RNA sequence: UAUUAGGUUGGCGCAAAAGAAAUUGCGGCUUUUGCUAUUGCCUUUAAUGGCAAAAGCCGCAAUUUCUUUUGCGCCAACCUAAUA
Numbered sequence: 001u002a003u004u005a006g007g008u009u010g011g012c013g014c015a016a017a018a019g020a021a022a023u024u025g026c027g028g029c030u031u032u033u034g035c036u037a038u039u040g041c042c043u044u045u046a047a048u049g050g051c052a053a054a055a056g057c058c059g060c061a062a063u064u065u066c067u068u069u070u071g072c073g074c075c076a077a078c079c080u081a082a083u084a
Base pairs, nucleotide, nucleotide: 001084002083003082004081005080006079007078008077009076010075011074012073013072014071015070016069017068018067019066020065021064022063023062024061025060026059027058028057029056030055031054032053033052034051035050036049037048038047039046040045
The record is an 84-nucleotide RNA sequence from Aotus nancymaae, which matches "mir-548 microRNA precursor family" in Rfam. On this family, see Witten et al., BMC Biol 2010: "Ultra-high throughput sequencing-based small RNA discovery and discrete statistical biomarker analysis in a collection of cervical tumours and matched controls". Taxonomically the source falls in Aotus (Eukaryota, Vertebrata, Teleostomi, Amniota). Pairs were carried over by alignment from the consensus structure, which was predicted with WAR. Gene Ontology terms of the family: miRNA-mediated post-transcriptional gene silencing and RISC complex. Rfam 15.1 lists 3,009 matches to the family in 27 species.